[Rfam]
RNA sequence: UAUGAAGGGCGCAUGGUGAAUGCCUUGGUACUAGGAGCCGAUGAAGGACGGGACUAACACCGAUAUGCUUCGGGGAGCGGUAAGUACGCUUUGAUCCGGAGAUUUCCGAAUGGGGAAACCCAACCAACUUAGUCGUUGGUUGCUUGACUAGUGAAUCUAUAGCUAGCAAGCGGUAGACGCAGUGAACUGAAACAUCUCAGUAGCUGCAGGAAGAGAAAGAAAAUUCGAUUCCCUGAGUAGCGGCGAGCGAAAGGGGAAGAGCCCAAACCAACGAGCUUGCUCGUUGGGGUUGUAGGACUGAACAUUUGAGUUACCAAAGUGCGACGUAGUCGCAACAGUUGGGAAGCUGUGCCAAAGAGGGUGAAAGCCCCGUAGACGAAACGUCACACUCUCAGUUCAGGAUCCUGAGUACGGCGGGACACGUGAAACCCCGUCGGAAGCUGCGAGGACCAUCUCGCAAGGCUAAAUACUCCCUAGUGACCGAUAGUGAACCAGUACCGUGAGGGAAAGGUGAAAAGCACCCCGGAAGGGGAGUGAAAUAGUUCCUGAAACCAUGUGCCUACAAG
Numbered sequence: 001u002a003u004g005a006a007g008g009g010c011g012c013a014u015g016g017u018g019a020a021u022g023c024c025u026u027g028g029u030a031c032u033a034g035g036a037g038c039c040g041a042u043g044a045a046g047g048a049c050g051g052g053a054c055u056a057a058c059a060c061c062g063a064u065a066u067g068c069u070u071c072g073g074g075g076a077g078c079g080g081u082a083a084g085u086a087c088g089c090u091u092u093g094a095u096c097c098g099g100a101g102a103u104u105u106c107c108g109a110a111u112g113g114g115g116a117a118a119c120c121c122a123a124c125c126a127a128c129u130u131a132g133u134c135g136u137u138g139g140u141u142g143c144u145u146g147a148c149u150a151g152u153g154a155a156u157c158u159a160u161a162g163c164u165a166g167c168a169a170g171c172g173g174u175a176g177a178c179g180c181a182g183u184g185a186a187c188u189g190a191a192a193c194a195u196c197u198c199a200g201u202a203g204c205u206g207c208a209g210g211a212a213g214a215g216a217a218a219g220a221a222a223a224u225u226c227g228a229u230u231c232c233c234u235g236a237g238u239a240g241c242g243g244c245g246a247g248c249g250a251a252a253g254g255g256g257a258a259g260a261g262c263c264c265a266a267a268c269c270a271a272c273g274a275g276c277u278u279g280c281u282c283g284u285u286g287g288g289g290u291u292g293u294a295g296g297a298c299u300g301a302a303c304a305u306u307u308g309a310g311u312u313a314c315c316a317a318a319g320u321g322c323g324a325c326g327u328a329g330u331c332g333c334a335a336c337a338g339u340u341g342g343g344a345a346g347c348u349g350u351g352c353c354a355a356a357g358a359g360g361g362u363g364a365a366a367g368c369c370c371c372g373u374a375g376a377c378g379a380a381a382c383g384u385c386a387c388a389c390u391c392u393c394a395g396u397u398c399a400g401g402a403u404c405c406u407g408a409g410u411a412c413g414g415c416g417g418g419a420c421a422c423g424u425g426a427a428a429c430c431c432c433g434u435c436g437g438a439a440g441c442u443g444c445g446a447g448g449a450c451c452a453u454c455u456c457g458c459a460a461g462g463c464u465a466a467a468u469a470c471u472c473c474c475u476a477g478u479g480a481c482c483g484a485u486a487g488u489g490a491a492c493c494a495g496u497a498c499c500g501u502g503a504g505g506g507a508a509a510g511g512u513g514a515a516a517a518g519c520a521c522c523c524c525g526g527a528a529g530g531g532g533a534g535u536g537a538a539a540u541a542g543u544u545c546c547u548g549a550a551a552c553c554a555u556g557u558g559c560c561u562a563c564a565a566g
Base pairs, nucleotide, nucleotide: 007561008560009559010558011557012556013555014554015553016552022546023511024510027482028481029479030478031477032476033475034474035473036471037470038173039172046107047106048105049062050061051060068101069100070099071098072097073096074095077089078088079087112121113120114119122141123140124139125138126137127136128135143170144169145168146167148166149165150164151163152162178209179207180206181205182204183203189196190195219226220225229467230257231256232255233254234253240248241247260464261463262462263461268287269286270285271284272283273282274281294406295405296404298400299399300398301397302396316392318390319389320388321387323385324384325383326382327381329377330376331375335350336349337348338347339346353357359371360370361369412436413435414434415433416432417431418430443458444457445456446455447454498505499504521532522531523530524529
RNA: Bacterial large subunit ribosomal RNA, nucleotides 9 to 574